[Rfam]
RNA sequence: GGUCUGGCUUUAGCUCAGGGGUUCCUUUGAGUCAAGCCUUCACUUGCCAACCACUCUUGCCGGUGAGGGUGGUUGAAGACCCGUGGGCCUCCUCCAGUCCUUUA
Dot-bracket structure: .(.((((.....((((.(.((....(((.(((.......................................))).)))..)).))))).....)))).).....